[Rfam]
Shown here is a 102-nucleotide RNA from Desulfohalobium retbaense, a member of the family "TPP riboswitch aptamer (THI element)".
A search with the family's covariance model found it, with a score of 75 bits.

RNA sequence: CUCUCGUGCUAGGGGAGCCCUCGGGGCUGAGAGGGGCCAGGAGCCCGACCCUUGGAACCUGAUGCGGGUCAUACCGCCGCAGGGAAGCGUGGCCCACUGCCA
Numbered sequence: 001c002u003c004u005c006g007u008g009c010u011a012g013g014g015g016a017g018c019c020c021u022c023g024g025g026g027c028u029g030a031g032a033g034g035g036g037c038c039a040g041g042a043g044c045c046c047g048a049c050c051c052u053u054g055g056a057a058c059c060u061g062a063u064g065c066g067g068g069u070c071a072u073a074c075c076g077c078c079g080c081a082g083g084g085a086a087g088c089g090u091g092g093c094c095c096a097c098u099g100c101c102a
Base pairs, nucleotide, nucleotide: 006090007089008088009087010086011052012051013050014049017027018026019025020024034046035045036044037043058083059082060081061080064077065076066075067074